[Rfam]
RNA sequence: GUAUGUGGUCACCGCAAGGUUUCUGGUGGCAACACCAGACAUUACACAGGUGGUUCGCUCACAGCGGGCCACCCCCGGCAACGCCGGACAGCAUCAAAACCGCCGGUGUCGAACCGGC
Numbered sequence: 001g002u003a004u005g006u007g008g009u010c011a012c013c014g015c016a017a018g019g020u021u022u023c024u025g026g027u028g029g030c031a032a033c034a035c036c037a038g039a040c041a042u043u044a045c046a047c048a049g050g051u052g053g054u055u056c057g058c059u060c061a062c063a064g065c066g067g068g069c070c071a072c073c074c075c076c077g078g079c080a081a082c083g084c085c086g087g088a089c090a091g092c093a094u095c096a097a098a099a100c101c102g103c104c105g106g107u108g109u110c111g112a113a114c115c116g117g118c
Stems, first nucleotide, its partner, number of pairs: 011020003022039006049073009075087004102118006
Shown here is a 118-nucleotide RNA sequence from Pseudomonas putida, a member of the family "Pseudomon-groES RNA". Rfam's curators put it in the seed alignment. The base pairs follow the family's consensus structure, which is taken from published work.